[Rfam]
RNA sequence: ACCGCGUACUUACCUACUGUAUAGUAGGAGAAAUACAUGUCUCUCAGCUACUAUACAGACGGUAAGUACGCGGUUU
Numbered sequence: 001a002c003c004g005c006g007u008a009c010u011u012a013c014c015u016a017c018u019g020u021a022u023a024g025u026a027g028g029a030g031a032a033a034u035a036c037a038u039g040u041c042u043c044u045c046a047g048c049u050a051c052u053a054u055a056c057a058g059a060c061g062g063u064a065a066g067u068a069c070g071c072g073g074u075u076u
Base pairs, nucleotide, nucleotide: 001074002073003072004071005070006069007068008067009066010065011064012063013062014061017058018057019056020055021054022053023052024051025050026049027048030045031044033042035040
Shown here is a 76-nucleotide RNA sequence from Ameiurus melas, a member of the family "mir-7563 microRNA precursor family". Rfam 15.1 lists 362 matches to the family in 2 species. A search with the family's covariance model found it, with a score of 84 bits. Its family is annotated with miRNA-mediated post-transcriptional gene silencing and RISC complex in the Gene Ontology. Lineage of the source: Eukaryota > Vertebrata > Actinopterygii > Clupeocephala > Ameiurus. The base pairs follow the family's consensus structure, which was predicted with RNAalifold.